Overview:
This 384-nucleotide part of an RNA from an uncultured Atribacterota bacterium belongs to the Rfam family "Bacterial large subunit ribosomal RNA".

RNA sequence: GAGAAGGCAAGUGAGAAUCUUGCCCGCCGAAAACCUAAGGUUUCCUGGGGAAGGUAAGUCCGCCCAGGGUUAGUCGGGCCCUAAGCCGAGGCCGAAAGGCGUAGGCGAUGGAUAACCGGUUAAUAUUCCGGUACUACCAACUGAUCGCUAUGGAGUGAUGGGGUGACCCAGGAGGGUAGGUCAGCACGAUAAAAGUUCCGUGUCCAAGCCCCCAGAGGGAAGAGACAGGCAAAUCCGUCUCUUUGUUAACCUCCAGAGGUGAUGGGGAGCUGCUACGGCGGCGAACUGAUUGAGCCCACACUGGCCAGAAAAACCUCUAACCAGAUCAGCUGGUAUCCGUACUAAAACCGACACAGGUAGGUAGGUAGAGCAUACCGAGGCGCU
Dot-bracket structure: .....((((((.......))))))((((....((((..((...((((((...((.....)).))))))......((((.((...(((.(.(((....))).).)))...))...(((((........)))))..(((((.(((((.........((...(((((...((((..(((..((((((((((..........)))))((..(((....(((..(((((((.((.....))))))))).......)))....)))...))...(((((....)))))....)))))...)))...))))........)))))..))...))))).)))))))))..))....((......)).)))).((((.....))))..))))..